Shown here is a 64-nucleotide RNA from Bacillus sp. J14TS2, a member of the family "Bacillaceae-1 RNA". NCBI's taxonomy places the organism under Bacteria, Bacillati, Bacillota, Caryophanales, Bacillus. The match comes from Rfam's covariance-model search (45 bits).

Nucleotides: 064
Stems, first nucleotide, its partner, number of pairs: 011047001013045005022036005051063004
Number, partner (000 for none) and nucleotide at each position: 001000u002000g003000a004000u005000a006000a007000g008000g009000a010000u011047c012000c013045u014044c015043c016042g017041u018000g019000u020000u021000g022036c023035c024034c025033a026032c027000g028000u029000c030000c031000u032026g033025u034024g035023g036022g037000u038000a039000a040000c041017a042016c043015g044014g045013a046000a047011g048000u049000c050000a051063g052062u053061a054060c055000a056000u057000c058000c059000u060054g061053u062052a063051c064000a
The family's RNA type in Rfam is small RNA.